[Rfam]
A member of the RNA family "int-alpA RNA" from Hydrogenophaga crassostreae, 80 nucleotides long. Acidobacteria (1 example), Planctomycetes (1 example), Proteobacteria. The organism belongs to Hydrogenophaga, within Bacteria. Rfam classes the family as a small RNA. Pairs were carried over by alignment from the consensus structure, which is taken from published work.
RNA sequence: GCCACGCCUAGCCUUCGGCUGAUCCCCGAUGGUGAAAACCGGGUUUCCCUGACCCGGCGGCGCUGGCUUCUUCUCGGGGG
Numbered sequence: 001g002c003c004a005c006g007c008c009u010a011g012c013c014u015u016c017g018g019c020u021g022a023u024c025c026c027c028g029a030u031g032g033u034g035a036a037a038a039c040c041g042g043g044u045u046u047c048c049c050u051g052a053c054c055c056g057g058c059g060g061c062g063c064u065g066g067c068u069u070c071u072u073c074u075c076g077g078g079g080g
Base pairs, nucleotide, nucleotide: 001067002066003065004064005062006061007060008059011033012032013031039057040056041055042054043053047080048079049078050077